[Rfam]
RNA sequence: AAGCAUAUGACGAAUUACUCGGAUUCCCCUUCAAGACUUCUUGAAUGAUGCAACUUUCGAGUGUCCGAUGCU
Dot-bracket structure: .((((...............................................................))))
RNA: Small nucleolar RNA snoR60
Organism: Cucumis sativus